[Rfam]
Background: The record is a 134-nucleotide sequence from Himantopus himantopus, which matches "Small nucleolar RNA SNORA9" in Rfam. ACA9 is a member of the H/ACA class of snoRNA that guide the sites of modification of uridines to pseudouridines. The match comes from Rfam's covariance-model search (120 bits). The base pairs follow the family's consensus structure, which was predicted with PFOLD. Rfam links the family to the GO terms RNA processing and nucleolus. The organism belongs to Himantopus, within Eukaryota. Clan: SNORA9 clan.

RNA sequence: CCGCAAGCCUUCCAGCGUGGGGGGGCCUGGGGUGGCCCCCACCAUUCCUACAGCGCUUGCCAGAGCAGCCCCGGGGCGGUUUGAGGCCUCUCCCCGCCUUCCCCGGGGGGGGGUUAUAGAAAUCCCGGACACCC
Numbered sequence: 001c002c003g004c005a006a007g008c009c010u011u012c013c014a015g016c017g018u019g020g021g022g023g024g025g026c027c028u029g030g031g032g033u034g035g036c037c038c039c040c041a042c043c044a045u046u047c048c049u050a051c052a053g054c055g056c057u058u059g060c061c062a063g064a065g066c067a068g069c070c071c072c073g074g075g076g077c078g079g080u081u082u083g084a085g086g087c088c089u090c091u092c093c094c095c096g097c098c099u100u101c102c103c104c105g106g107g108g109g110g111g112g113g114u115u116a117u118a119g120a121a122a123u124c125c126c127g128g129a130c131a132c133c134c
Stems, first nucleotide, its partner, number of pairs: 003060006018044003023038005072127005087113006094106003